[Rfam]
RNA sequence: UCUGGAUAAACUUGUAUCCAUCCAAGAGAAUGGGGCAAGUCACUUUACGGAAGUUAAAAUAAGUAGCACAUUUCAGGAUUGACAAAGGCUUACAUAUAAGAGAAAUCUUGGAAUGACUGGAUAACCGUAUGUCCUUUAACAUAUUUUAUGUUAUAAAAAUAAUCUCGAAUAGCUUUAACUAGCUUUUCAAGUUACGAUUUG
Numbered sequence: 001u002c003u004g005g006a007u008a009a010a011c012u013u014g015u016a017u018c019c020a021u022c023c024a025a026g027a028g029a030a031u032g033g034g035g036c037a038a039g040u041c042a043c044u045u046u047a048c049g050g051a052a053g054u055u056a057a058a059a060u061a062a063g064u065a066g067c068a069c070a071u072u073u074c075a076g077g078a079u080u081g082a083c084a085a086a087g088g089c090u091u092a093c094a095u096a097u098a099a100g101a102g103a104a105a106u107c108u109u110g111g112a113a114u115g116a117c118u119g120g121a122u123a124a125c126c127g128u129a130u131g132u133c134c135u136u137u138a139a140c141a142u143a144u145u146u147u148a149u150g151u152u153a154u155a156a157a158a159a160u161a162a163u164c165u166c167g168a169a170u171a172g173c174u175u176u177a178a179c180u181a182g183c184u185u186u187u188c189a190a191g192u193u194a195c196g197a198u199u200u201g
Base pairs, nucleotide, nucleotide: 001051002050003049004048006046008044010040011039012038013037014036015035017034018033019032020031021030022028069115070114071113072112073111074110075109076108077107078106079105080104089100091098119134120133121132122131124198126196127195128194129193130159137153138152139151140150141149164191165190167188168187169186171184172183173182174181
RNA: IS605-orfB-I RNA